The family of this 53-nucleotide RNA from Mikania micrantha is "Plastid-psbl-rps4 3UTR RNA". By type it is a cis-regulatory element. Plastid psbl-rps4-psbC is a non-coding RNA (ncRNA) present in plastids. It is compose of two short stem-loops in tandem in the terminal 3 prime untranslate region (3UTR) mostly in psbl and rps4 seed plants genes. It scores 70 bits against the family's covariance model.

RNA sequence: CGGAAAGAGAGGGAUUCGAACCCUUGGUACAAACAACUCGUACAACAUAUUAG
Numbered sequence: 001c002g003g004a005a006a007g008a009g010a011g012g013g014a015u016u017c018g019a020a021c022c023c024u025u026g027g028u029a030c031a032a033a034c035a036a037c038u039c040g041u042a043c044a045a046c047a048u049a050u051u052a053g
Base pairs, nucleotide, nucleotide: 009025010024011023012022013021027043028042029041030040032038
Dot-bracket structure: ........(((((.......))))).((((.(.....).))))..........